The record is a 110-nucleotide sequence from Piliocolobus tephrosceles, which matches "Y RNA" in Rfam. The family's consensus secondary structure is taken from published work. By type it is a non-coding RNA gene. The organism belongs to Piliocolobus, within Eukaryota.
[Rfam]
RNA sequence: GGCUGGUCCAAAUGUAGUGAGUGAUCUCAAUUGAUUAUUCACAGCAAGUUACAGAUCGAACUCCUUGUUCUGUUUUCCCCCUUCUCACUACUGCAUUUGACUAGUCUUUA
Numbered sequence: 001g002g003c004u005g006g007u008c009c010a011a012a013u014g015u016a017g018u019g020a021g022u023g024a025u026c027u028c029a030a031u032u033g034a035u036u037a038u039u040c041a042c043a044g045c046a047a048g049u050u051a052c053a054g055a056u057c058g059a060a061c062u063c064c065u066u067g068u069u070c071u072g073u074u075u076u077c078c079c080c081c082u083u084c085u086c087a088c089u090a091c092u093g094c095a096u097u098u099g100a101c102u103a104g105u106c107u108u109u110a
Stems, first nucleotide, its partner, number of pairs: 001106008010098002014094002016089006047071002